[Rfam]
RNA sequence: GAGCUAUGAAGAUGUUAAAGGAAUCUGAGAUUCCAUUGAAGACAUAAGAUCCAACUCUGAGCUUGCUGAAAAG
Numbered sequence: 001g002a003g004c005u006a007u008g009a010a011g012a013u014g015u016u017a018a019a020g021g022a023a024u025c026u027g028a029g030a031u032u033c034c035a036u037u038g039a040a041g042a043c044a045u046a047a048g049a050u051c052c053a054a055c056u057c058u059g060a061g062c063u064u065g066c067u068g069a070a071a072a073g
Stems, first nucleotide, its partner, number of pairs: 001064004